[Rfam]
RNA: mir-9256 microRNA precursor family
RNA sequence: UUGUAUACUGAGUGGCCAGAUUAUUAUGAUGUCUGAACGCAUAAUAAUCUGGCCGCUCAGUGUAUAC
Numbered sequence: 001u002u003g004u005a006u007a008c009u010g011a012g013u014g015g016c017c018a019g020a021u022u023a024u025u026a027u028g029a030u031g032u033c034u035g036a037a038c039g040c041a042u043a044a045u046a047a048u049c050u051g052g053c054c055g056c057u058c059a060g061u062g063u064a065u066a067c
Stems, first nucleotide, its partner, number of pairs: 004064014019049010